[Rfam]
The record is a 147-nucleotide RNA sequence from Blautia sp. An249, which matches "Ribosomal protein L10 leader" in Rfam. Rfam's curators write: This family is a putative r-protein leader autoregulatory structure found in B. subtilis and other low-GC Gram-positive bacteria. It is located in the 5' untranslated regions of mRNAs encoding ribosomal proteins L10 and L12 (rplJ-rplL). A Rho-independent transcription terminator structure that is probably involved in regulation is included at the 3' end. NCBI's taxonomy places the organism under Bacteria, Bacillati, Bacillota, Lachnospiraceae, Blautia. By type it is a cis-regulatory leader. It scores 68 bits against the family's covariance model. Its family is annotated with regulation of gene expression in the Gene Ontology.

RNA sequence: UAGUAUCAACGUAUCACGCCGAAGACAGUGGGUGCCGGAAGGCAUAAAGAGAAAUCACCCGCCGAGGAGAGAUGAUUCUUACAGAUUUUAUGAGAAUGAUUUUCACUCCCUGUGUCUUUGGAUCCGGGGAGUUUUUUAUUUCCGAAU
Numbered sequence: 001u002a003g004u005a006u007c008a009a010c011g012u013a014u015c016a017c018g019c020c021g022a023a024g025a026c027a028g029u030g031g032g033u034g035c036c037g038g039a040a041g042g043c044a045u046a047a048a049g050a051g052a053a054a055u056c057a058c059c060c061g062c063c064g065a066g067g068a069g070a071g072a073u074g075a076u077u078c079u080u081a082c083a084g085a086u087u088u089u090a091u092g093a094g095a096a097u098g099a100u101u102u103u104c105a106c107u108c109c110c111u112g113u114g115u116c117u118u119u120g121g122a123u124c125c126g127g128g129g130a131g132u133u134u135u136u137u138a139u140u141u142c143c144g145a146a147u
Stems, first nucleotide, its partner, number of pairs: 028062006034043003105132008114123003